Rfam assigns this 46-nucleotide sequence from Octopus sinensis to the family "Histone 3' UTR stem-loop". Taxonomically the source falls in Octopus (Eukaryota, Bilateria, Protostomia, Coleoidea). A search with the family's covariance model found it, with a score of 37 bits. It is annotated as a cis-regulatory element.
RNA sequence: AUAACGGUCCUUUUCAGGACCACCCAUAUUCUCAUGAUUGUUACUU
Numbered sequence: 001a002u003a004a005c006g007g008u009c010c011u012u013u014u015c016a017g018g019a020c021c022a023c024c025c026a027u028a029u030u031c032u033c034a035u036g037a038u039u040g041u042u043a044c045u046u
Stems, first nucleotide, its partner, number of pairs: 006021006